Shown here is a 132-nucleotide sequence from Chloroceryle aenea, a member of the family "Small nucleolar RNA SNORA69". From the family's description: U69 is a member of the H/ACA class of small nucleolar RNAs (snoRNAs) which act as guides in the the modification of uridines to pseudouridines. The family has 16 seed sequences and 808 matches in Rfam 15.1.
RNA sequence: AAAGCAGGCUGCAAUUUCAGCGCUUCAUUCUGUGGGAGUGCUGCCAUUUCCCUGCUGAGAGUAACCCUGUUAACACUGUCUUCGGUUUCACCUACACAGUGGUGGAACUGUUUAUUCUUAACGUGGACAACU
Numbered sequence: 001a002a003a004g005c006a007g008g009c010u011g012c013a014a015u016u017u018c019a020g021c022g023c024u025u026c027a028u029u030c031u032g033u034g035g036g037a038g039u040g041c042u043g044c045c046a047u048u049u050c051c052c053u054g055c056u057g058a059g060a061g062u063a064a065c066c067c068u069g070u071u072a073a074c075a076c077u078g079u080c081u082u083c084g085g086u087u088u089c090a091c092c093u094a095c096a097c098a099g100u101g102g103u104g105g106a107a108c109u110g111u112u113u114a115u116u117c118u119u120a121a122c123g124u125g126g127a128c129a130a131c132u
Stems, first nucleotide, its partner, number of pairs: 003056006018043009065126002068123006075116001083110010
Dot-bracket structure: ..((((((.........(((((((((........))))))))).......))))))........((.((((((.(.......((((((((((........)))))))))).....).)))))).))......